Annotation: The family of this 121-nucleotide RNA from Sinocyclocheilus grahami is "Small nucleolar RNA SNORA26". On this family, see Huttenhofer et al., EMBO J 2001: "RNomics: an experimental approach that identifies 201 candidates for novel, small, non-messenger RNAs in mouse".

RNA sequence: UUGCACAUUCAAGUCCUGUUAUGUCUUGAGUGAUUAAGACAGGGGGGUAGAUGAAUUCUCUCAAAAACCUGAAGUAUUGGCUUAACAUUCCUUGCUUCGGAUCCUGUCGGGAGAAACAAUU
Numbered sequence: 001u002u003g004c005a006c007a008u009u010c011a012a013g014u015c016c017u018g019u020u021a022u023g024u025c026u027u028g029a030g031u032g033a034u035u036a037a038g039a040c041a042g043g044g045g046g047g048u049a050g051a052u053g054a055a056u057u058c059u060c061u062c063a064a065a066a067a068c069c070u071g072a073a074g075u076a077u078u079g080g081c082u083u084a085a086c087a088u089u090c091c092u093u094g095c096u097u098c099g100g101a102u103c104c105u106g107u108c109g110g111g112a113g114a115a116a117c118a119a120u121u
Base pairs, nucleotide, nucleotide: 002049003048004047006045008043009042014036017033019030056115058113059112060111061110062109069100070099071098072097073096074095075094079091080090
Rfam links the family to the GO terms RNA processing and nucleolus. The source organism's lineage runs through Eukaryota, Opisthokonta, Chordata, Vertebrata and Sinocyclocheilus. Rfam's curators write: The snoRNA HBI-6 belong to the H/ACA family of snoRNAs, guiding the pseudouridylation of position U4522 if the 28S rRNA. HBI-6 is the human orthologue of mouse MBI-6 snoRNA. Its Rfam clan is "SNORA27 clan".